[Rfam]
RNA: c-di-AMP riboswitch aptamer (ydaO/yuaA leader)
Organism: Streptomyces sp. AS58
RNA sequence: GCCGCCCGGAUGCCCGGUCGACAGGAGUGGAUCGGCAGGAGUGGAGGACCCAGCACGACGGGUCGCCGGAACGCACGUUCCGAGCAGCCCUUGGGGUGAAGCCGCGGUCACGCGGCCGGGCCACUUCGCCAGCCCGAAUCCGACAGGUCAUCCUUCACAGGCGGCUGACGAAGGGUUG
Numbered sequence: 001g002c003c004g005c006c007c008g009g010a011u012g013c014c015c016g017g018u019c020g021a022c023a024g025g026a027g028u029g030g031a032u033c034g035g036c037a038g039g040a041g042u043g044g045a046g047g048a049c050c051c052a053g054c055a056c057g058a059c060g061g062g063u064c065g066c067c068g069g070a071a072c073g074c075a076c077g078u079u080c081c082g083a084g085c086a087g088c089c090c091u092u093g094g095g096g097u098g099a100a101g102c103c104g105c106g107g108u109c110a111c112g113c114g115g116c117c118g119g120g121c122c123a124c125u126u127c128g129c130c131a132g133c134c135c136g137a138a139u140c141c142g143a144c145a146g147g148u149c150a151u152c153c154u155u156c157a158c159a160g161g162c163g164g165c166u167g168a169c170g171a172a173g174g175g176u177u178g
Stems, first nucleotide, its partner, number of pairs: 003163004041158006051093002094141003102115004118135004